[Rfam]
A member of the RNA family "ylbH leader" from Niallia taxi, 122 nucleotides long. It is annotated as a cis-regulatory leader. Lineage of the source: Bacteria > Bacillati > Bacillota > Bacilli > Niallia. This family is a putative regulatory RNA structure that is found upstream of the ylbH gene in B. subtilis and related low GC Gram-positive bacteria.
RNA sequence: UGAAAAAAAAACCUGCAAGCGAGCGGCUUGCAGGCUCCUUCUAUAUCCUUUUAGGAAAGAAGGUAAAGGGAGAGGAGAAACCGGAGGAAGAACUUAUGGGGAAACGUAAGUCUUCUCCGCGG
Numbered sequence: 001u002g003a004a005a006a007a008a009a010a011a012c013c014u015g016c017a018a019g020c021g022a023g024c025g026g027c028u029u030g031c032a033g034g035c036u037c038c039u040u041c042u043a044u045a046u047c048c049u050u051u052u053a054g055g056a057a058a059g060a061a062g063g064u065a066a067a068g069g070g071a072g073a074g075g076a077g078a079a080a081c082c083g084g085a086g087g088a089a090g091a092a093c094u095u096a097u098g099g100g101g102a103a104a105c106g107u108a109a110g111u112c113u114u115c116u117c118c119g120c121g122g
Stems, first nucleotide, its partner, number of pairs: 012034008036070005046056004082119004087115004092111005